[Rfam]
Nucleotides: 049
Stems, first nucleotide, its partner, number of pairs: 005045006015034001018036002021032004
Number, partner (000 for none) and nucleotide at each position: 001000a002000g003000a004000g005045c006044g007043a008042g009041u010040a011000g012000a013000a014000g015034c016000g017000g018036u019035c020000g021032g022031g023030c024029c025000a026000c027000g028000g029024g030023g031022c032021c033000u034015g035019g036018g037000c038000a039000u040010u041009g042008c043007u044006c045005g046000a047000c048000g049000g

The family of this 49-nucleotide RNA from Celeribacter indicus is "Xanthine riboswitch aptamer (NMT1 RNA)". The literature on the family includes a 2020 paper in RNA by Yu and Breaker, "A bacterial riboswitch class senses xanthine and uric acid to regulate genes associated with purine oxidation". NCBI's taxonomy places the organism under Bacteria, Alphaproteobacteria, Rhodobacterales, Roseobacteraceae, Celeribacter. The family's consensus secondary structure is taken from published work.